[Rfam]
RNA sequence: AACGGUUUGAAAAAACUGCCUAAGACAGUAGGGGAGUUCAACUCAUAAGAAUCCUACCGAGGACAAAACGUAUUGAAUAAAUAACGGUUUGUACUUUCGUGUCUAGGUUUGGGUGCGAAUUUUUUAUUUGCCC
Numbered sequence: 001a002a003c004g005g006u007u008u009g010a011a012a013a014a015a016c017u018g019c020c021u022a023a024g025a026c027a028g029u030a031g032g033g034g035a036g037u038u039c040a041a042c043u044c045a046u047a048a049g050a051a052u053c054c055u056a057c058c059g060a061g062g063a064c065a066a067a068a069c070g071u072a073u074u075g076a077a078u079a080a081a082u083a084a085c086g087g088u089u090u091g092u093a094c095u096u097u098c099g100u101g102u103c104u105a106g107g108u109u110u111g112g113g114u115g116c117g118a119a120u121u122u123u124u125u126a127u128u129u130g131c132c133c
Stems, first nucleotide, its partner, number of pairs: 028057006034044003096119010
RNA: Ribosomal protein L10 leader
Organism: Streptococcus danieliae